Shown here is a 61-nucleotide sequence from Mesoplasma corruscae, a member of the family "2dG-I riboswitch aptamer (M. florum)". The family has 4 seed sequences and 24 matches in Rfam 15.1. On this family, see Kim et al., Proc Natl Acad Sci U S A 2007: "Guanine riboswitch variants from Mesoplasma florum selectively recognize 2'-deoxyguanosine". Rfam links the family to the GO terms deoxyribonucleoside binding and regulation of DNA-templated transcription, termination.
[Rfam]
RNA sequence: AAUUAUACAAGAUAACAUAAUGGGUUAUCGACCUGCUUUAGACCAAUCUAAAACUAUAAUU
Dot-bracket structure: ((((((((..((((((.....[[))))))[....)]((((((]]..))))))..)))))))